[Rfam]
Shown here is a 94-nucleotide RNA sequence from Salvator merianae, a member of the family "Vault RNA". From the family's description: This family of RNAs are found as part of the enigmatic vault ribonucleoprotein complex. The complex consists of a major vault protein (MVP), two minor vault proteins (VPARP and TEP1), and several small untranslated RNA molecules. It has been suggested that the vault complex is involved in drug resistance. Taxonomically the source falls in Salvator (Eukaryota, Chordata, Tetrapoda, Bifurcata).
RNA sequence: AGGCCAGCUUAGCUUAGGGGCUCCUUUGCAUUCCAUUCAGUUAGCACCAUUUCAACUCUUGGUCUGAGUCCCAUGGACGCUUCCUGGCCUUUUG
Numbered sequence: 001a002g003g004c005c006a007g008c009u010u011a012g013c014u015u016a017g018g019g020g021c022u023c024c025u026u027u028g029c030a031u032u033c034c035a036u037u038c039a040g041u042u043a044g045c046a047c048c049a050u051u052u053c054a055a056c057u058c059u060u061g062g063u064c065u066g067a068g069u070c071c072c073a074u075g076g077a078c079g080c081u082u083c084c085u086g087g088c089c090u091u092u093u094g
Stems, first nucleotide, its partner, number of pairs: 002089006012078001014076002017074001019072002025068004